[Rfam]
RNA sequence: CCACCAUCCAGAGCGGCCGAGAGACCUGGCUCCUUGACGCCGCAGCAACCCGGUAGGCGGGUGCUUCAGCCAGGACCGAUGGAGA
Numbered sequence: 001c002c003a004c005c006a007u008c009c010a011g012a013g014c015g016g017c018c019g020a021g022a023g024a025c026c027u028g029g030c031u032c033c034u035u036g037a038c039g040c041c042g043c044a045g046c047a048a049c050c051c052g053g054u055a056g057g058c059g060g061g062u063g064c065u066u067c068a069g070c071c072a073g074g075a076c077c078g079a080u081g082g083a084g085a
Base pairs, nucleotide, nucleotide: 002084004082005081006080007079008078013043014042015041016040017039021032022031023030026073027072028071029070044065045064046063047062049061050060051057069077
The record is an 85-nucleotide RNA from Actinomyces sp. HMT897, which matches "SAM riboswitch aptamer (S box leader)" in Rfam. The match comes from Rfam's covariance-model search (51 bits). About the family: The SAM riboswitch is found upstream of a number of genes which code for proteins involved in methionine or cysteine biosynthesis in Gram-positive bacteria. Pairs were carried over by alignment from the consensus structure, which is taken from published work.